The family of this 74-nucleotide sequence from Galleria mellonella is "mir-124 microRNA precursor family". Rfam links the family to the GO terms RISC complex and miRNA-mediated post-transcriptional gene silencing. The family's consensus secondary structure was predicted with PFOLD. The literature on the family includes a 2003 paper in Genome Biol by Lai et al., "Computational identification of Drosophila microRNA genes".
RNA sequence: UCCUCCUCGCGUUCACUGCCGGAGCCAUUAUGUGUAACUAAAUAUCAUAAGGCACGCGGUGAAUGCCAAGAGCG
Dot-bracket structure: ..(((...((((((((.((.....((.(((((.............)))))))...)).))))))))...)))..